[Rfam]
RNA sequence: ACUUUCCUGCUGUGUGCGGGUUAAUAGGUUUAUAUUGAGCCAACACAUUAUUGAAAGGGAAUCGGACUCUUUCUGUGGAUUUGAUACUUAAGCUUUGCUUAAGAACAAAGAAGUAGAAAGGAGAUGCCCACCUGCUAUCUGCAGGUUCAAAUAUAACUUAUUUUAACGGCACGGCGGGAAUUAU
Numbered sequence: 001a002c003u004u005u006c007c008u009g010c011u012g013u014g015u016g017c018g019g020g021u022u023a024a025u026a027g028g029u030u031u032a033u034a035u036u037g038a039g040c041c042a043a044c045a046c047a048u049u050a051u052u053g054a055a056a057g058g059g060a061a062u063c064g065g066a067c068u069c070u071u072u073c074u075g076u077g078g079a080u081u082u083g084a085u086a087c088u089u090a091a092g093c094u095u096u097g098c099u100u101a102a103g104a105a106c107a108a109a110g111a112a113g114u115a116g117a118a119a120g121g122a123g124a125u126g127c128c129c130a131c132c133u134g135c136u137a138u139c140u141g142c143a144g145g146u147u148c149a150a151a152u153a154u155a156a157c158u159u160a161u162u163u164u165a166a167c168g169g170c171a172c173g174g175c176g177g178g179a180a181u182u183a184u
Stems, first nucleotide, its partner, number of pairs: 004180012017168002021166001032154004036149006057129003061125003070119007082107002087103005
Shown here is a 184-nucleotide sequence from Clostridium liquoris, a member of the family "6S / SsrS RNA".